A member of the RNA family "Small nucleolar RNA SNORA32" from Orycteropus afer, 141 nucleotides long. Pairs were carried over by alignment from the consensus structure, which was predicted with RNAfold. Lineage of the source: Eukaryota > Metazoa > Euteleostomi > Tubulidentata > Orycteropus afer. The match comes from Rfam's covariance-model search (72 bits). ACA32 is a member of the H/ACA class of snoRNA that guide the sites of modification of uridines to pseudouridines.
Nucleotides: 141
Stems, first nucleotide, its partner, number of pairs: 003053004010046003026041004075134001094127004105120003
Number, partner (000 for none) and nucleotide at each position: 001000u002000g003053g004052u005051c006050a007000u008000u009000a010046c011045c012044a013000a014000a015000g016000c017000u018000u019000u020000u021000a022000g023000a024000a025000u026041g027040c028039a029038g030000u031000u032000u033000c034000u035000g036000a037000u038029u039028u040027g041026u042000u043000a044012u045011g046010g047000a048000c049000u050006u051005g052004a053003c054000c055000g056000u057000u058000a059000a060000a061000a062000c063000a064000a065000a066000c067000a068000a069000c070000a071000a072000c073000a074000a075134c076000a077000a078000a079000a080000a081000a082000a083000a084000a085000a086000a087000a088000a089000a090000c091000c092000u093000a094127g095126g096125u097124u098000u099000u100000c101000u102000c103000u104000u105120u106119g107118c108000u109000a110000c111000c112000u113000u114000g115000g116000u117000a118107g119106c120105a121000u122000u123000a124097a125096a126095c127094c128000a129000a130000u131000u132000u133000g134075g135000a136000a137000c138000a139000u140000u141000u